[Rfam]
Rfam assigns this 151-nucleotide RNA sequence from Paramesorhizobium deserti to the family "Alphaproteobacterial sRNA ar7". The source organism's lineage runs through Bacteria, Alphaproteobacteria, Hyphomicrobiales, Phyllobacteriaceae and Paramesorhizobium. The literature on the family includes a 2012 paper in RNA Biol by del Val et al., "A survey of sRNA families in alpha-proteobacteria".
RNA sequence: CGUCGACAACACGUCGAUAUCCGGUCUUCUGGCCCGUCCCCCGCUGGAUUCCGGAUCGGGCGGCAGCCUCACAUCCCCCCUCUCCGGGCUGCCGCUUCAUUAUAAUGAUCUGGCCGCUGCGGUACCCCCCUCACCGCAGCGGUCAAGUCUU
Numbered sequence: 001c002g003u004c005g006a007c008a009a010c011a012c013g014u015c016g017a018u019a020u021c022c023g024g025u026c027u028u029c030u031g032g033c034c035c036g037u038c039c040c041c042c043g044c045u046g047g048a049u050u051c052c053g054g055a056u057c058g059g060g061c062g063g064c065a066g067c068c069u070c071a072c073a074u075c076c077c078c079c080c081u082c083u084c085c086g087g088g089c090u091g092c093c094g095c096u097u098c099a100u101u102a103u104a105a106u107g108a109u110c111u112g113g114c115c116g117c118u119g120c121g122g123u124a125c126c127c128c129c130c131u132c133a134c135c136g137c138a139g140c141g142g143u144c145a146a147g148u149c150u151u
Stems, first nucleotide, its partner, number of pairs: 021054004027048001031045003058097011109147001111145012